The record is a 118-nucleotide RNA sequence from Prodigiosinella confusarubida, which matches "Magnesium riboswitch aptamer (Magnesium responsive RNA element)" in Rfam. Rfam describes the family as follows. The Magnesium sensor RNA element is a cis-regulatory element that regulates the expression of the magnesium transporter protein MgtA. It is located in the 5' UTR of this gene. The element adopts different structures depending on the presence or absence of Mg2+, this has the affect of regulating whether transcription reads through the mgtA coding region or stops within the 5' UTR. Its family is annotated with regulation of gene expression in the Gene Ontology. On this family, see Spinelli et al., FEMS Microbiol Lett 2008: "Regulation of magnesium homeostasis in Salmonella: Mg(2+) targets the mgtA transcript for degradation by RNase E". The base pairs follow the family's consensus structure, which is taken from published work.
[Rfam]
Nucleotides: 118
Stems, first nucleotide, its partner, number of pairs: 002069001004067005010061001020034003039054002082110010
Number, partner (000 for none) and nucleotide at each position: 001000a002069u003000a004067a005066c006065c007064g008063g009000a010061g011000a012000a013000c014000c015000c016000c017000u018000a019000a020034u021033g022032g023000g024000a025000c026000c027000a028000g029000a030000c031000c032022c033021u034020a035000a036000u037000c038000c039054u040053c041000a042000c043000c044000c045000g046000g047000a048000a049000a050000a051000c052000a053040g054039a055000g056000u057000c058000a059000u060000c061010c062000a063008c064007c065006g066005g067004u068000a069002a070000g071000c072000c073000a074000g075000c076000u077000u078000u079000u080000u081000u082110g083109c084108u085107g086106c087105c088104u089103u090102g091101c092000c093000g094000g095000u096000a097000a098000c099000a100000g101091g102090c103089a104088a105087g106086g107085c108084a109083g110082u111000g112000a113000c114000g115000u116000c117000u118000u